Small nucleolar RNA snoR74: a 135-nucleotide sequence from Thalictrum thalictroides. A search with the family's covariance model found it, with a score of 106 bits. By type it is an H/ACA-box small nucleolar RNA.
RNA sequence: AAAAAAGCAGGGUUUCGUUGUCUUUUUUUAAGAACGAAUCUCUCGUAGACUUCAGGAAAAACAAAUUCAUUGUUUUUGGGUGAACCUAUGGAUUUUUGUAAAGUACCAAUGGGUUCAGUUAAUGAUGAAACAUUU
Numbered sequence: 001a002a003a004a005a006a007g008c009a010g011g012g013u014u015u016c017g018u019u020g021u022c023u024u025u026u027u028u029u030a031a032g033a034a035c036g037a038a039u040c041u042c043u044c045g046u047a048g049a050c051u052u053c054a055g056g057a058a059a060a061a062c063a064a065a066u067u068c069a070u071u072g073u074u075u076u077u078g079g080g081u082g083a084a085c086c087u088a089u090g091g092a093u094u095u096u097u098g099u100a101a102a103g104u105a106c107c108a109a110u111g112g113g114u115u116c117a118g119u120u121a122a123u124g125a126u127g128a129a130a131c132a133u134u135u
Stems, first nucleotide, its partner, number of pairs: 005052003011041002014038006066129009081117007
Annotation
On this family, see Marker et al., Curr Biol 2002: "Experimental RNomics: identification of 140 candidates for small non-messenger RNAs in the plant Arabidopsis thaliana".